[Rfam]
RNA sequence: GAAACACACUUAUGGGGCAGGACUUGAUUCAGUGGGGCAUUGAUUCUCACUGAGUCUGCCCCUUGAGUGUGUCUCU
Numbered sequence: 001g002a003a004a005c006a007c008a009c010u011u012a013u014g015g016g017g018c019a020g021g022a023c024u025u026g027a028u029u030c031a032g033u034g035g036g037g038c039a040u041u042g043a044u045u046c047u048c049a050c051u052g053a054g055u056c057u058g059c060c061c062c063u064u065g066a067g068u069g070u071g072u073c074u075c076u
Base pairs, nucleotide, nucleotide: 001075002074004072005071006070007069009067010066011065012064014062015061016060017059018058019057021056022055023054029053030052031051032050033049034048035047036046037044
RNA: mir-9229 microRNA precursor family
Organism: Myotis brandtii